Rfam assigns this 53-nucleotide RNA from Paraburkholderia steynii to the family "DUF3800-VI RNA". Pairs were carried over by alignment from the consensus structure, which is taken from published work.
RNA sequence: AGGUCGGGAGUGCUGCCUUUCUGCGGUGCGUCGAGCAAUGUCUCGCCUGGCUU
Numbered sequence: 001a002g003g004u005c006g007g008g009a010g011u012g013c014u015g016c017c018u019u020u021c022u023g024c025g026g027u028g029c030g031u032c033g034a035g036c037a038a039u040g041u042c043u044c045g046c047c048u049g050g051c052u053u
Stems, first nucleotide, its partner, number of pairs: 001053008010029007032045004

Background: It scores 52 bits against the family's covariance model. It is annotated as a cis-regulatory element.